RNA: chrB-b RNA
RNA sequence: UCGGGUCUUCCAGGCCCCCGGCUUCCCAAGACGGUGUCCCGUCCAAGUCUGG
Numbered sequence: 001u002c003g004g005g006u007c008u009u010c011c012a013g014g015c016c017c018c019c020g021g022c023u024u025c026c027c028a029a030g031a032c033g034g035u036g037u038c039c040c041g042u043c044c045a046a047g048u049c050u051g052g
Base pairs, nucleotide, nucleotide: 001021002020003019004018005017010052011051012050013049014048030043031042032041033040034039